[Rfam]
Rfam assigns this 70-nucleotide RNA sequence from Sitophilus oryzae to the family "mir-1000 microRNA precursor family". Its family is annotated with miRNA-mediated post-transcriptional gene silencing, negative regulation of glutamate secretion, neurotransmission and RISC complex in the Gene Ontology. The match comes from Rfam's covariance-model search (74 bits).

RNA sequence: GGCUCUGAUAUUGUCCUGUCACAGCAGUACGAUUUUACAGUUACUGCUGAUGCGGGACAUGACCAGAGCU
Dot-bracket structure: ..((((.....(((((((...((((((((............))))))))...))))))).....))))..
Numbered sequence: 001g002g003c004u005c006u007g008a009u010a011u012u013g014u015c016c017u018g019u020c021a022c023a024g025c026a027g028u029a030c031g032a033u034u035u036u037a038c039a040g041u042u043a044c045u046g047c048u049g050a051u052g053c054g055g056g057a058c059a060u061g062a063c064c065a066g067a068g069c070u
Stems, first nucleotide, its partner, number of pairs: 003068004012059007022049008